[Rfam]
RNA: Group II catalytic intron D1-D4-2
RNA sequence: GGAGGUGGGCCCUCCGGAAUCGCCGUACAGGCGGAGAUUCCAAAUCACCUGCUGCUGCUGCAUUUAAGAGGUGUGGUGGUGAGCGAGCCAGGAAAAGGCGGGAUAAGAUCCUGUCAGA
Numbered sequence: 001g002g003a004g005g006u007g008g009g010c011c012c013u014c015c016g017g018a019a020u021c022g023c024c025g026u027a028c029a030g031g032c033g034g035a036g037a038u039u040c041c042a043a044a045u046c047a048c049c050u051g052c053u054g055c056u057g058c059u060g061c062a063u064u065u066a067a068g069a070g071g072u073g074u075g076g077u078g079g080u081g082a083g084c085g086a087g088c089c090a091g092g093a094a095a096a097g098g099c100g101g102g103a104u105a106a107g108a109u110c111c112u113g114u115c116a117g118a
Stems, first nucleotide, its partner, number of pairs: 001015005016041006023034004046117001048092002051088003054080002057077003061073004097115006